[Rfam]
RNA sequence: CCGAUGAUCCGGGCCCCUCUGACGCGAGCCGUGCCGGCGUUCGCGUGAUGUCGGAUCGCUUUC
Numbered sequence: 001c002c003g004a005u006g007a008u009c010c011g012g013g014c015c016c017c018u019c020u021g022a023c024g025c026g027a028g029c030c031g032u033g034c035c036g037g038c039g040u041u042c043g044c045g046u047g048a049u050g051u052c053g054g055a056u057c058g059c060u061u062u063c
Base pairs, nucleotide, nucleotide: 006057007056008055009054010053011052012051022046023045024044025043026042027041028040029039
Rfam assigns this 63-nucleotide RNA from Ancylobacter defluvii to the family "terC RNA". By type it is a cis-regulatory element.